[Rfam]
RNA sequence: CUUCUCACUACAUCCUCGCGACUAAUGACAACCCUUAUUCACCUGGCGGAAUAAAGUCUCUCAUUAGCCGCGCGAACCUCUGUAACGGAAGAUCCUCGUUAGUACAUUAACCUGAUUUACUUAUGCUUCCUAGAAGAAAGGGGCCAAAAUAGGCCCCUUUCC
Numbered sequence: 001c002u003u004c005u006c007a008c009u010a011c012a013u014c015c016u017c018g019c020g021a022c023u024a025a026u027g028a029c030a031a032c033c034c035u036u037a038u039u040c041a042c043c044u045g046g047c048g049g050a051a052u053a054a055a056g057u058c059u060c061u062c063a064u065u066a067g068c069c070g071c072g073c074g075a076a077c078c079u080c081u082g083u084a085a086c087g088g089a090a091g092a093u094c095c096u097c098g099u100u101a102g103u104a105c106a107u108u109a110a111c112c113u114g115a116u117u118u119a120c121u122u123a124u125g126c127u128u129c130c131u132a133g134a135a136g137a138a139a140g141g142g143g144c145c146a147a148a149a150u151a152g153g154c155c156c157c158u159u160u161c162c
Stems, first nucleotide, its partner, number of pairs: 001091004006087001010083003017074004022067007140157006
Dot-bracket structure: ((((.(...(((....((((.(((((((................................)))))))...))))......)))...)))))................................................((((((......)))))).....
RNA: SraG RNA